[Rfam]
RNA sequence: UCAGGUGGCUGGGCGGUCGCGGCAACUGGGCCGGAAACGGUGUUGUCGAGGAAAGUCCGGGCUCCACGGAGGCAAGGUGCCGGAUAGCGUCCGGCGGGGGUGACCCCAGGGAAAGCGCAGCAGAGAACAGACCGCCGGGCCUUCGGGCCAGGCAAGGGUGAAACGGUGCGGUAAGAGCGCACCGCCCCGACCGCAAGGAAGGGGGCUAGGCAAGCCCCACCUGGAGCAAGACCGAAUAGGGACAGACCGCAGCCUCGGCUGCACGUGCGCCUCCGCAUGCUGUCCGGGUAGGUCGCACCAGGUCGUGCGCAAGCACGAUCGCAGAUGAAUGACCGUCGCCCCGGAUCUGAUCCGGGGGACAAGACCCGGCUUACAGGCCGCCUGAUCAC
Numbered sequence: 001u002c003a004g005g006u007g008g009c010u011g012g013g014c015g016g017u018c019g020c021g022g023c024a025a026c027u028g029g030g031c032c033g034g035a036a037a038c039g040g041u042g043u044u045g046u047c048g049a050g051g052a053a054a055g056u057c058c059g060g061g062c063u064c065c066a067c068g069g070a071g072g073c074a075a076g077g078u079g080c081c082g083g084a085u086a087g088c089g090u091c092c093g094g095c096g097g098g099g100g101u102g103a104c105c106c107c108a109g110g111g112a113a114a115g116c117g118c119a120g121c122a123g124a125g126a127a128c129a130g131a132c133c134g135c136c137g138g139g140c141c142u143u144c145g146g147g148c149c150a151g152g153c154a155a156g157g158g159u160g161a162a163a164c165g166g167u168g169c170g171g172u173a174a175g176a177g178c179g180c181a182c183c184g185c186c187c188c189g190a191c192c193g194c195a196a197g198g199a200a201g202g203g204g205g206c207u208a209g210g211c212a213a214g215c216c217c218c219a220c221c222u223g224g225a226g227c228a229a230g231a232c233c234g235a236a237u238a239g240g241g242a243c244a245g246a247c248c249g250c251a252g253c254c255u256c257g258g259c260u261g262c263a264c265g266u267g268c269g270c271c272u273c274c275g276c277a278u279g280c281u282g283u284c285c286g287g288g289u290a291g292g293u294c295g296c297a298c299c300a301g302g303u304c305g306u307g308c309g310c311a312a313g314c315a316c317g318a319u320c321g322c323a324g325a326u327g328a329a330u331g332a333c334c335g336u337c338g339c340c341c342c343g344g345a346u347c348u349g350a351u352c353c354g355g356g357g358g359a360c361a362a363g364a365c366c367c368g369g370c371u372u373a374c375a376g377g378c379c380g381c382c383u384g385a386u387c388a389c
Stems, first nucleotide, its partner, number of pairs: 001385010011374001012337007020048007053372003057369005062226004071272002075222005080094005095109001096107004110217002115215002117211002132157002134153003138149004165183006184206001185204004191198002230294004240285006264279005301320008
Shown here is a 389-nucleotide RNA from Maricaulis maris, a member of the family "Bacterial RNase P class A". Pairs were carried over by alignment from the consensus structure, which is taken from published work. Rfam describes the family as follows. Ribonuclease P (RNase P) is a ubiquitous endoribonuclease, found in archaea, bacteria and eukarya as well as chloroplasts and mitochondria. It is annotated as a ribozyme. Gene Ontology terms of the family: ribonuclease P activity, dimeric ribonuclease P complex and tRNA processing.